[Rfam]
RNA sequence: AUUUUCAGAAAAGCGACGGACAGGGUCCUUUUGUCCGUCACUUUUCUGGAUUUUC
Numbered sequence: 001a002u003u004u005u006c007a008g009a010a011a012a013g014c015g016a017c018g019g020a021c022a023g024g025g026u027c028c029u030u031u032u033g034u035c036c037g038u039c040a041c042u043u044u045u046c047u048g049g050a051u052u053u054u055c
Stems, first nucleotide, its partner, number of pairs: 001053001004050010015039007
Background:
Shown here is a 55-nucleotide RNA from Solanum tuberosum, a member of the family "MIR8008 microRNA precursor family". The organism belongs to Solanum, within Eukaryota. Pairs were carried over by alignment from the consensus structure, which was predicted with RNAalifold.